[Rfam]
RNA sequence: UGCCUGUGAUGAGUUUCCAUGCUAAUAAUGAUACACCAGACUGGGUCUUCGGGUCUGUGUCUGGGUGUAGCUGAGUUUAAACUCGCUAUUCUCACACCGCUGUGGGAUCUGAGGCAA
Numbered sequence: 001u002g003c004c005u006g007u008g009a010u011g012a013g014u015u016u017c018c019a020u021g022c023u024a025a026u027a028a029u030g031a032u033a034c035a036c037c038a039g040a041c042u043g044g045g046u047c048u049u050c051g052g053g054u055c056u057g058u059g060u061c062u063g064g065g066u067g068u069a070g071c072u073g074a075g076u077u078u079a080a081a082c083u084c085g086c087u088a089u090u091c092u093c094a095c096a097c098c099g100c101u102g103u104g105g106g107a108u109c110u111g112a113g114g115c116a117a
Base pairs, nucleotide, nucleotide: 001116002115003114004113042057043056044055045054
The record is a 117-nucleotide sequence from Acipenser ruthenus, which matches "Small nucleolar RNA U6-53/MBII-28" in Rfam. For this family Rfam cites "RNomics: an experimental approach that identifies 201 candidates for novel, small, non-messenger RNAs in mouse" (Huttenhofer et al., EMBO J, 2001). By type it is a C/D-box small nucleolar RNA.